RNA sequence: CGCCAUAAACCCGUAGAUCCGAACUUGCGGUCGCUCCUCGUGCAAGCUCGACUCUGUGGGUCUGUGUCGG
Numbered sequence: 001c002g003c004c005a006u007a008a009a010c011c012c013g014u015a016g017a018u019c020c021g022a023a024c025u026u027g028c029g030g031u032c033g034c035u036c037c038u039c040g041u042g043c044a045a046g047c048u049c050g051a052c053u054c055u056g057u058g059g060g061u062c063u064g065u066g067u068c069g070g
Stems, first nucleotide, its partner, number of pairs: 002068001004066004010060003015055003020050003024046006
A member of the RNA family "mir-10 microRNA precursor family" from Alligator mississippiensis, 70 nucleotides long.
Lineage of the source: Eukaryota > Craniata > Crocodylia > Alligatoridae > Alligator.
Rfam links the family to the GO terms RISC complex and miRNA-mediated post-transcriptional gene silencing.